Histone 3' UTR stem-loop: a 45-nucleotide RNA sequence from Mytilus galloprovincialis. Lineage of the source: Eukaryota > Spiralia > Bivalvia > Mytilinae > Mytilus. The family's RNA type in Rfam is cis-regulatory element. It scores 39 bits against the family's covariance model.
Nucleotides: 045
Stems, first nucleotide, its partner, number of pairs: 006021006
Number, partner (000 for none) and nucleotide at each position: 001000u002000a003000a004000a005000c006021g007020g008019c009018c010017c011016u012000u013000u014000u015000c016011a017010g018009g019008g020007c021006c022000a023000u024000c025000a026000a027000u028000a029000u030000a031000u032000u033000a034000c035000a036000a037000a038000a039000a040000g041000a042000u043000u044000c045000u